[Rfam]
RNA sequence: GAACCUGUGUGUUACUGGCGCGAACAUGGUGAACCAUGAGGGAGCGCACAGGAUAACAGCCGUACGCCUGGGCAAAGUAU
Numbered sequence: 001g002a003a004c005c006u007g008u009g010u011g012u013u014a015c016u017g018g019c020g021c022g023a024a025c026a027u028g029g030u031g032a033a034c035c036a037u038g039a040g041g042g043a044g045c046g047c048a049c050a051g052g053a054u055a056a057c058a059g060c061c062g063u064a065c066g067c068c069u070g071g072g073c074a075a076a077g078u079a080u
Base pairs, nucleotide, nucleotide: 004052005051006050007049008048009047010046011045012044015041016040017068018067019066020065026037027036028035029034059073060072061071
The family of this 80-nucleotide RNA from Paenibacillus curdlanolyticus is "ZMP/ZTP riboswitch aptamer (pfl RNA motif)". Rfam links the family to the GO terms regulation of purine nucleotide biosynthetic process and one-carbon metabolic process. The literature on the family includes a 2015 paper in Nat Struct Mol Biol by Jones and Ferre-D'Amare, "Recognition of the bacterial alarmone ZMP through long-distance association of two RNA subdomains". It scores 56 bits against the family's covariance model.